Shown here is an 80-nucleotide RNA sequence from Cricetulus griseus, a member of the family "mir-326 microRNA precursor family".
RNA sequence: CUAUUGGGCUGGGGGCAGGGCCUUUGUGAAGGCGGGUUAUGCUCGGAUCGCCUCUGGGCCCUUCCUCCAGUCCCGAGGCA
Numbered sequence: 001c002u003a004u005u006g007g008g009c010u011g012g013g014g015g016c017a018g019g020g021c022c023u024u025u026g027u028g029a030a031g032g033c034g035g036g037u038u039a040u041g042c043u044c045g046g047a048u049c050g051c052c053u054c055u056g057g058g059c060c061c062u063u064c065c066u067c068c069a070g071u072c073c074c075g076a077g078g079c080a
Stems, first nucleotide, its partner, number of pairs: 001077002006073010017062007030053006

Rfam 15.1 lists 129 matches to the family in 129 species. On this family, see Chiang et al., Genes Dev 2010: "Mammalian microRNAs: experimental evaluation of novel and previously annotated genes". Gene Ontology terms of the family: RISC complex and miRNA-mediated post-transcriptional gene silencing. It is one of the family's seed sequences.